[Rfam]
RNA sequence: GGACAGAACUCUGGAGAGUUCCGUAAGGACGCCGAAGGGGCAAGACAGUAGAAGAUACUGUCCAAUCUCUCAGGCAAAAGGACAGAGAAAAGAUU
Numbered sequence: 001g002g003a004c005a006g007a008a009c010u011c012u013g014g015a016g017a018g019u020u021c022c023g024u025a026a027g028g029a030c031g032c033c034g035a036a037g038g039g040g041c042a043a044g045a046c047a048g049u050a051g052a053a054g055a056u057a058c059u060g061u062c063c064a065a066u067c068u069c070u071c072a073g074g075c076a077a078a079a080g081g082a083c084a085g086a087g088a089a090a091a092g093a094u095u
Stems, first nucleotide, its partner, number of pairs: 009087005020029003031075003034071002038069003044062007
About this RNA: Shown here is a 95-nucleotide RNA from Desulfitobacterium dichloroeliminans, a member of the family "Glycine riboswitch aptamer". The match comes from Rfam's covariance-model search (61 bits).